A member of the RNA family "Small nucleolar RNA SNORA74" from Nomascus leucogenys, 190 nucleotides long.
RNA sequence: UCCAGCAGUAGUCAGCUGUCUGGACAGAACCAUUCCUGGGAUGGUGUUACACUGCUGGGAGAAGAAUGUCUUCUCUUCAUCCGGUUGCCUCCAUCACUGUUCUGGUGGUGUCUGGCACUGGUCUGUGCUUCCUUGAGAGUGUGCUGAGCAUUCACCUUGGCUGCUUGGUUCUAGUCUGGGAGCAGACACA
Numbered sequence: 001u002c003c004a005g006c007a008g009u010a011g012u013c014a015g016c017u018g019u020c021u022g023g024a025c026a027g028a029a030c031c032a033u034u035c036c037u038g039g040g041a042u043g044g045u046g047u048u049a050c051a052c053u054g055c056u057g058g059g060a061g062a063a064g065a066a067u068g069u070c071u072u073c074u075c076u077u078c079a080u081c082c083g084g085u086u087g088c089c090u091c092c093a094u095c096a097c098u099g100u101u102c103u104g105g106u107g108g109u110g111u112c113u114g115g116c117a118c119u120g121g122u123c124u125g126u127g128c129u130u131c132c133u134u135g136a137g138a139g140u141g142u143g144c145u146g147a148g149c150a151u152u153c154a155c156c157u158u159g160g161c162u163g164c165u166u167g168g169u170u171c172u173a174g175u176c177u178g179g180g181a182g183c184a185g186a187c188a189c190a
Base pairs, nucleotide, nucleotide: 001059002058003057004056005055006054007053008052009051011050012049015045016044017043018042019041020040021038022036023035024034081121082120083119084118085117087116088115089114092110093109094108095107096106097105098104126184127183128182129181130180131179132178141171143169145167146166147165148164149163150162
Source information
Rfam links the family to the GO terms RNA processing and nucleolus. Taxonomically the source falls in Nomascus (Eukaryota, Opisthokonta, Sarcopterygii, Euarchontoglires). U19 belongs to the H/ACA class of snoRNAs. snoRNAs bind a number of proteins (including dyskerin, Gar1p and Nop10p in the case of the H/ACA class) to form snoRNP complexes. This class are thought to guide the sites of modification of uridines to pseudouridines by forming direct base pairing interactions with substrate RNAs. Targets may include ribosomal and spliceosomal RNAs but the exact functions of many snoRNAs, including U19, are not confirmed. Its Rfam clan is "SNORA74 clan". The match comes from Rfam's covariance-model search (103 bits). For this family Rfam cites "The family of box ACA small nucleolar RNAs is defined by an evolutionarily conserved secondary structure and ubiquitous sequence elements essential for RNA accumulation" (Ganot et al., Genes Dev, 1997).